[Rfam]
The record is a 79-nucleotide RNA sequence from Bellilinea caldifistulae, which matches "c-di-GMP-I-GGC riboswitch aptamer" in Rfam. Its family is annotated with cyclic-di-GMP binding in the Gene Ontology. It scores 69 bits against the family's covariance model.

RNA sequence: CCCGAAAAUGGCAAACUCAUCGCGAGAUGAGGGCGCAAAGUUAUGGGUCUGAGAUAAUCAGAUCGCCAGACUGCCGAAA
Numbered sequence: 001c002c003c004g005a006a007a008a009u010g011g012c013a014a015a016c017u018c019a020u021c022g023c024g025a026g027a028u029g030a031g032g033g034c035g036c037a038a039a040g041u042u043a044u045g046g047g048u049c050u051g052a053g054a055u056a057a058u059c060a061g062a063u064c065g066c067c068a069g070a071c072u073g074c075c076g077a078a079a
Base pairs, nucleotide, nucleotide: 003076004075011036012035016031017030018029019028020027021026034065039072040071041070042069044068045067046066047063048062049061
The organism belongs to Bellilinea, within Bacteria.